[Rfam]
RNA sequence: AAACUUACCUGGUUGGGGGUAUUUCGCGAUCAAGAAGGCGGAAUCCCCACGGCGAGGCCUUUCCAUUGCACUUUGGGAUGGGCUGACCUGUGUGGCAGUCUCGAGUUGAGAUUCGCCAACAACUAAAUUUUUGCGUGAGGGGCUGCGUUCGCGCGGCCCUGC
Numbered sequence: 001a002a003a004c005u006u007a008c009c010u011g012g013u014u015g016g017g018g019g020u021a022u023u024u025c026g027c028g029a030u031c032a033a034g035a036a037g038g039c040g041g042a043a044u045c046c047c048c049a050c051g052g053c054g055a056g057g058c059c060u061u062u063c064c065a066u067u068g069c070a071c072u073u074u075g076g077g078a079u080g081g082g083c084u085g086a087c088c089u090g091u092g093u094g095g096c097a098g099u100c101u102c103g104a105g106u107u108g109a110g111a112u113u114c115g116c117c118a119a120c121a122a123c124u125a126a127a128u129u130u131u132u133g134c135g136u137g138a139g140g141g142g143c144u145g146c147g148u149u150c151g152c153g154c155g156g157c158c159c160u161g162c
Stems, first nucleotide, its partner, number of pairs: 012123004016048004023042005049091004054087001056084003060080001062078001063076002093118004097113002100110002139160004144155004
Dot-bracket structure: ...........((((((((...(((((..........)))))..))))((((.(.(((.(.(((..........)).).).)))..))))).((((((.((.......)).)).)))).))))...............((((.((((....)))).))))..
This 162-nucleotide sequence from Caenorhabditis bovis belongs to the Rfam family "U1 spliceosomal RNA". Pairs were carried over by alignment from the consensus structure, which is taken from published work. It scores 125 bits against the family's covariance model. Rfam's curators write: U1 is a small nuclear RNA (snRNA) component of the spliceosome (involved in pre-mRNA splicing). Its family is annotated with mRNA 5'-splice site recognition, pre-mRNA 5'-splice site binding and U1 snRNP in the Gene Ontology. The source organism's lineage runs through Eukaryota, Bilateria, Rhabditina, Peloderinae and Caenorhabditis.